[Rfam]
RNA sequence: AGAGUCGUACGGUGAGGGCCUAGCCAGCCACACCGGCUCCGAGUCUUGCGGAUGUGGCCGUAAGGCCAUGUACGAAGCGUAGACAGGAGGAACUACAGGCCAGGCUAUUGAGCCGCGAAAUAUCCCUAACUUCAGGACGCCGACGCCUUGACACAACGCGGAAGGCAACAUCCUGACAAGCAGUAUGGCGAGCUUGGCAGGAGUCCUGCGCGGUCUAUGACCC
Numbered sequence: 001a002g003a004g005u006c007g008u009a010c011g012g013u014g015a016g017g018g019c020c021u022a023g024c025c026a027g028c029c030a031c032a033c034c035g036g037c038u039c040c041g042a043g044u045c046u047u048g049c050g051g052a053u054g055u056g057g058c059c060g061u062a063a064g065g066c067c068a069u070g071u072a073c074g075a076a077g078c079g080u081a082g083a084c085a086g087g088a089g090g091a092a093c094u095a096c097a098g099g100c101c102a103g104g105c106u107a108u109u110g111a112g113c114c115g116c117g118a119a120a121u122a123u124c125c126c127u128a129a130c131u132u133c134a135g136g137a138c139g140c141c142g143a144c145g146c147c148u149u150g151a152c153a154c155a156a157c158g159c160g161g162a163a164g165g166c167a168a169c170a171u172c173c174u175g176a177c178a179a180g181c182a183g184u185a186u187g188g189c190g191a192g193c194u195u196g197g198c199a200g201g202a203g204u205c206c207u208g209c210g211c212g213g214u215c216u217a218u219g220a221c222c223c
Base pairs, nucleotide, nucleotide: 010035011034012033013032014031017029018028019027021191023189024188037089038088039087040086043084044083045082046081047079048078049074050073052071053070054069055068056067057066058065059064109217110215112214113213114212115211116210117209133208134207135206136205137204138203139166140165141164144160145159146158171202172201173200174199175198177196178195179194180193181192